RNA sequence: GACCUCCUGGUGCUUACCACAGGCUCUGUUCUUACAGACUGUAUAGGAAAAGGAGGUGAAGUAAACCUCUCCCACAUAUGCCUCAGCCCAGGCUCUGUGCCUGGUCUGUAUUGUGAAUGAGGAGACAUGG
Dot-bracket structure: .(((((((...........(((...((((....)))).))).........)))))))............((.((.........(((.((((((.....)))))).))).........)).))........
Numbered sequence: 001g002a003c004c005u006c007c008u009g010g011u012g013c014u015u016a017c018c019a020c021a022g023g024c025u026c027u028g029u030u031c032u033u034a035c036a037g038a039c040u041g042u043a044u045a046g047g048a049a050a051a052g053g054a055g056g057u058g059a060a061g062u063a064a065a066c067c068u069c070u071c072c073c074a075c076a077u078a079u080g081c082c083u084c085a086g087c088c089c090a091g092g093c094u095c096u097g098u099g100c101c102u103g104g105u106c107u108g109u110a111u112u113g114u115g116a117a118u119g120a121g122g123a124g125a126c127a128u129g130g
Stems, first nucleotide, its partner, number of pairs: 002057007020041003026037004070122002073119002084108003088104006